[Rfam]
RNA sequence: UCAUCACCACCAUCAUAAAGCAUAACCUUUCAGGUUUGUGCUGGAAGGUUGUUGUUUUCCUUCCAGUGGCGCAGAUAACAGUUAUCGACCCCCGGAAGGAAACUUCCGGGGGUUUUU
Number, nucleotide and partner (000 for none) at each position: 001u000002c000003a000004u000005c000006a000007c000008c040009a039010c038011c000012a035013u034014c033015a000016u000017a000018a000019a000020g031021c000022a000023u000024a000025a000026c000027c000028u000029u000030u000031c020032a000033g014034g013035u012036u000037u000038g010039u009040g008041c066042u065043g064044g063045a062046a061047g060048g059049u000050u000051g000052u000053u000054g000055u000056u000057u000058u000059c048060c047061u046062u045063c044064c043065a042066g041067u000068g000069g000070c000071g000072c000073a000074g000075a000076u000077a000078a000079c000080a000081g000082u000083u000084a117085u000086c000087g114088a113089c112090c111091c110092c109093c108094g107095g106096a105097a104098g103099g000100a000101a000102a000103c098104u097105u096106c095107c094108g093109g092110g091111g090112g089113u088114u087115u000116u000117u084